Small nucleolar RNA U19: a 131-nucleotide RNA sequence from Rosa chinensis. Gene Ontology terms of the family: RNA processing and nucleolus. The family has 3 seed sequences and 421 matches in Rfam 15.1. The match comes from Rfam's covariance-model search (73 bits).

RNA sequence: AUGUGGGCUUAGUUAGGAGGCAAACAUUAAUCUCAAUCCAACAUGUUUUGUGUUGGAUUGAGCGAGGCGUUUUUGAGGGGACUCUCUGCUCUUUCUCAGUUCAGUUGUCCUCCAAGCACCCUCAUACAUUA
Numbered sequence: 001a002u003g004u005g006g007g008c009u010u011a012g013u014u015a016g017g018a019g020g021c022a023a024a025c026a027u028u029a030a031u032c033u034c035a036a037u038c039c040a041a042c043a044u045g046u047u048u049u050g051u052g053u054u055g056g057a058u059u060g061a062g063c064g065a066g067g068c069g070u071u072u073u074u075g076a077g078g079g080g081a082c083u084c085u086c087u088g089c090u091c092u093u094u095c096u097c098a099g100u101u102c103a104g105u106u107g108u109c110c111u112c113c114a115a116g117c118a119c120c121c122u123c124a125u126a127c128a129u130u131a
Stems, first nucleotide, its partner, number of pairs: 004022002008019003035059005041053005062125001064123004072116004077112006085104001
Dot-bracket structure: ...((..(((......))).))............(((((.(((((...))))).)))))..(.((((....((((.((((((..(..................)..))))))))))...)))).)......